mir-216 microRNA precursor family: a 73-nucleotide sequence from Danionella cerebrum. Pairs were carried over by alignment from the consensus structure, which was predicted with WAR. The family has 57 seed sequences and 1,667 matches in Rfam 15.1. Its family is annotated with RISC complex and miRNA-mediated post-transcriptional gene silencing in the Gene Ontology. Clan: mir-216 clan. For this family Rfam cites "Identification of novel chicken microRNAs and analysis of their genomic organization" (Shao et al., Gene, 2008).

RNA sequence: CGACUGAGUAAUCUCUGCAGGCAACUGUGAUGUGAUAAUAGUCUCACAUUGACCUGUAGAGGUUGAGCAGUCU
Numbered sequence: 001c002g003a004c005u006g007a008g009u010a011a012u013c014u015c016u017g018c019a020g021g022c023a024a025c026u027g028u029g030a031u032g033u034g035a036u037a038a039u040a041g042u043c044u045c046a047c048a049u050u051g052a053c054c055u056g057u058a059g060a061g062g063u064u065g066a067g068c069a070g071u072c073u
Stems, first nucleotide, its partner, number of pairs: 003071004009065009020055002024050001026048005
Dot-bracket structure: ..((((..(((((((((..((..(.(((((.............))))).)...)).)))))))))..))))..